[Rfam]
Nucleotides: 095
Stems, first nucleotide, its partner, number of pairs: 009086002012083003019077008034062006
Number, partner (000 for none) and nucleotide at each position: 001000a002000u003000g004000a005000u006000g007000c008000c009086c010085c011000c012083g013082g014081c015000u016000g017000u018000g019077a020076g021075a022074a023073c024072u025071g026070a027000a028000u029000u030000c031000c032000a033000u034062g035061g036060g037059u038058u039057g040000u041000c042000c043000c044000a045000g046000a047000u048000a049000c050000c051000u052000u053000u054000u055000c056000u057039c058038a059037a060036c061035c062034c063000a064000u065000g066000a067000u068000u069000c070026u071025c072024a073023g074022u075021u076020c077019u078000g079000c080000a081014g082013c083012u084000u085010g086009g087000a088000a089000g090000c091000u092000u093000u094000u095000u